[Rfam]
RNA sequence: CCCACCCCCGCCUCCGUUGAGUCUGCAGCACUCAUUAGUGGCCCUCAGCAGAAGGGACAGGAGCCGGGGAGGG
Numbered sequence: 001c002c003c004a005c006c007c008c009c010g011c012c013u014c015c016g017u018u019g020a021g022u023c024u025g026c027a028g029c030a031c032u033c034a035u036u037a038g039u040g041g042c043c044c045u046c047a048g049c050a051g052a053a054g055g056g057a058c059a060g061g062a063g064c065c066g067g068g069g070a071g072g073g
Base pairs, nucleotide, nucleotide: 001073002072003071005069006068007067009063011061012060013059018034019033020032021031022030042056043055044054045053
Shown here is a 73-nucleotide sequence from Amphibalanus amphitrite, a member of the family "bZIP non canonical Hac1/Xbp1 intron". Taxonomically the source falls in Amphibalanus (Eukaryota, Arthropoda, Cirripedia, Thoracica). By type it is a small RNA. From the family's description: bZIP intron RNA is a non-canonical intron that was first reported in HAC1 gene in yeast and XBP1 gene in Metazoa. Pairs were carried over by alignment from the consensus structure, which was predicted with RNAfold.